[Rfam]
RNA: Y RNA
Organism: Propithecus coquereli
RNA sequence: AGCUGAUCCCAAGGUAGUGAGUUAUCCCAGCUGGUUGUUCAGUCAGUGACAGAUCAAACUCCUUGUUCUACUCUUUCCCUCUUCUCACUACUGCACUCAACUAGUCUAAA
Numbered sequence: 001a002g003c004u005g006a007u008c009c010c011a012a013g014g015u016a017g018u019g020a021g022u023u024a025u026c027c028c029a030g031c032u033g034g035u036u037g038u039u040c041a042g043u044c045a046g047u048g049a050c051a052g053a054u055c056a057a058a059c060u061c062c063u064u065g066u067u068c069u070a071c072u073c074u075u076u077c078c079c080u081c082u083u084c085u086c087a088c089u090a091c092u093g094c095a096c097u098c099a100a101c102u103a104g105u106c107u108a109a110a
Stems, first nucleotide, its partner, number of pairs: 002105004007100001011097001014094002016089006041072003045069002